[Rfam]
RNA sequence: UUGCGGGGCCGGGCCCCUCUGGCAGAGCCAAUGAUGGCGCUGCGAUGUCGGACCGCAUCG
Number, nucleotide and partner (000 for none) at each position: 001u000002u000003g000004c000005g000006g054007g053008g000009c051010c050011g049012g048013g000014c000015c000016c000017c000018u000019c000020u000021g000022g043023c042024a041025g040026a000027g038028c037029c036030a000031a000032u000033g000034a000035u000036g029037g028038c027039g000040c025041u024042g023043c022044g000045a000046u000047g000048u012049c011050g010051g009052a000053c007054c006055g000056c000057a000058u000059c000060g000

Shown here is a 60-nucleotide RNA sequence from Hyphomicrobium denitrificans, a member of the family "terC RNA". By type it is a cis-regulatory element. The organism belongs to Hyphomicrobium denitrificans, within Bacteria. It is one of the family's seed sequences.